[Rfam]
RNA sequence: UGCUGAACCAAGCCCUGUCUCCAUCUCCACGUGAUGACCGCUGGAAGCUCUUUCUUAACGAAAAGCUGCAGACGGAGAAGG
Numbered sequence: 001u002g003c004u005g006a007a008c009c010a011a012g013c014c015c016u017g018u019c020u021c022c023a024u025c026u027c028c029a030c031g032u033g034a035u036g037a038c039c040g041c042u043g044g045a046a047g048c049u050c051u052u053u054c055u056u057a058a059c060g061a062a063a064a065g066c067u068g069c070a071g072a073c074g075g076a077g078a079a080g081g
Stems, first nucleotide, its partner, number of pairs: 014081003018077001020075002023035003046067004051062002054060001
Dot-bracket structure: .............(((.(.((.(((.......)))..........((((.((.(.....))).))))......)).).)))

drz-agam-1 ribozyme: an 81-nucleotide RNA sequence from Hermetia illucens. The family has 7 seed sequences and 10,507 matches in Rfam 15.1. Rfam links the family to the GO term catalytic activity. The organism belongs to Hermetia, within Eukaryota.